Rfam assigns this 98-nucleotide sequence from a Thermoleophilia bacterium to the family "TPP riboswitch aptamer (THI element)". A search with the family's covariance model found it, with a score of 60 bits.

RNA sequence: CCGCCGCGACCGGGGUGCCCGCACACCGUGUGGGCUGAGAGCACACCCGUAGAACCUGAUCCGGGUCAUGCCGGCGAAGGGAGCGCACCGUUGGCCAU
Numbered sequence: 001c002c003g004c005c006g007c008g009a010c011c012g013g014g015g016u017g018c019c020c021g022c023a024c025a026c027c028g029u030g031u032g033g034g035c036u037g038a039g040a041g042c043a044c045a046c047c048c049g050u051a052g053a054a055c056c057u058g059a060u061c062c063g064g065g066u067c068a069u070g071c072c073g074g075c076g077a078a079g080g081g082a083g084c085g086c087a088c089c090g091u092u093g094g095c096c097a098u
Stems, first nucleotide, its partner, number of pairs: 006086003010083001011049004016043001017035007055080003061074004